[Rfam]
RNA sequence: GAGGUGUUGCGCGGCACAUAGUCCAGAAACACGUCCCCGCGCGCUUGGUCGAUGCAGUGAAACAGCGGGUUCCAGCUGAACAGGUGCAGCAUGAACGGCGGCAGCGAGUUGGCGACGAACAUCUUACCCGAGGCGAUCAUGUUCGCCCGCUG
Number, nucleotide and partner (000 for none) at each position: 001g034002a000003g032004g000005u031006g030007u029008u028009g000010c026011g000012c000013g023014g022015c000016a000017c000018a000019u000020a000021g000022u014023c013024c000025a000026g010027a000028a008029a007030c006031a005032c003033g000034u001035c000036c000037c000038c054039g053040c051041g050042c000043g000044c000045u000046u000047g000048g000049u000050c041051g040052a000053u039054g038055c000056a000057g000058u000059g000060a000061a000062a000063c152064a151065g150066c149067g148068g000069g081070u080071u079072c078073c000074a000075g000076c000077u000078g072079a071080a070081c069082a000083g000084g000085u000086g146087c145088a143089g142090c141091a140092u139093g138094a000095a000096c000097g000098g000099c130100g129101g128102c000103a125104g124105c000106g122107a000108g000109u118110u117111g116112g000113c000114g000115a000116c111117g110118a109119a000120c000121a000122u106123c000124u104125u103126a000127c000128c101129c100130g099131a000132g000133g000134c000135g000136a000137u000138c093139a092140u091141g090142u089143u088144c000145g087146c086147c000148c067149g066150c065151u064152g063
RNA: Ruegeria cis2 sRNA
Organism: Thalassobius vesicularis